[Rfam]
RNA sequence: GUUGAGGGGAAUGUUGUCUGGAUCGAGGAUAUUAUAGAUAUAUACAUGUGUAUGUUAAUGAUUCAAGUGAUCAUAGAGAGUAUCCUCGGACCAGGCUUCAUCCCCCCCAAC
Numbered sequence: 001g002u003u004g005a006g007g008g009g010a011a012u013g014u015u016g017u018c019u020g021g022a023u024c025g026a027g028g029a030u031a032u033u034a035u036a037g038a039u040a041u042a043u044a045c046a047u048g049u050g051u052a053u054g055u056u057a058a059u060g061a062u063u064c065a066a067g068u069g070a071u072c073a074u075a076g077a078g079a080g081u082a083u084c085c086u087c088g089g090a091c092c093a094g095g096c097u098u099c100a101u102c103c104c105c106c107c108c109a110a111c
Stems, first nucleotide, its partner, number of pairs: 001111004006106004011101003016096006024088003

Annotation
The family of this 111-nucleotide sequence is "mir-166 microRNA precursor family". Rfam's curators write: This family represents the plant microRNA (miRNA) precursor mir-166. Rfam links the family to the GO terms RISC complex and miRNA-mediated post-transcriptional gene silencing. The base pairs follow the family's consensus structure, which was predicted with PFOLD. The family has 31 seed sequences and 2,599 matches in Rfam 15.1. A reference for the family is Ambros (2001), "microRNAs: tiny regulators with great potential", Cell. The sequence is in the family's curated seed alignment.